The record is a 119-nucleotide RNA from Ligilactobacillus pobuzihii, which matches "FMN riboswitch aptamer (RFN element)" in Rfam.
RNA sequence: AUCAUUCUUCAGGGCAGGGUGUAAUUCCCGACCGGCGGUGAUAGUCCGCGAACCUCAGUGAGGUUGAUUCAGUGUGAUCCUGAAACCGACAGUAAUAGUCUGGAUGGAAGAAGAAUAAU
Numbered sequence: 001a002u003c004a005u006u007c008u009u010c011a012g013g014g015c016a017g018g019g020u021g022u023a024a025u026u027c028c029c030g031a032c033c034g035g036c037g038g039u040g041a042u043a044g045u046c047c048g049c050g051a052a053c054c055u056c057a058g059u060g061a062g063g064u065u066g067a068u069u070c071a072g073u074g075u076g077a078u079c080c081u082g083a084a085a086c087c088g089a090c091a092g093u094a095a096u097a098g099u100c101u102g103g104a105u106g107g108a109a110g111a112a113g114a115a116u117a118a119u
Stems, first nucleotide, its partner, number of pairs: 004116007017029003031099002033088002035049004044086002052064003068084005090102003
The base pairs follow the family's consensus structure, which is taken from published work. The match comes from Rfam's covariance-model search (116 bits).